Shown here is a 121-nucleotide sequence from Steinernema hermaphroditum, a member of the family "U5 spliceosomal RNA". The match comes from Rfam's covariance-model search (79 bits). Taxonomically the source falls in Steinernema (Eukaryota, Eumetazoa, Panagrolaimomorpha, Strongyloidoidea). It is annotated as a spliceosomal small nuclear RNA.
RNA sequence: AGUCUCUGGAGUCGACGCAGUUAACCGAGAAAUUCUUUCGCCUUUUACUAAAGAAUUCCGUGAAUCGACUCACUUUAUGAGUUUAUCUCAAUUUUUGGAGUCCCGAUCGUAAGAGAGGGAU
Dot-bracket structure: ...(((..(((((((..((...........((((((((...........))))))))...))..))))))).......))).................(.((((............)))))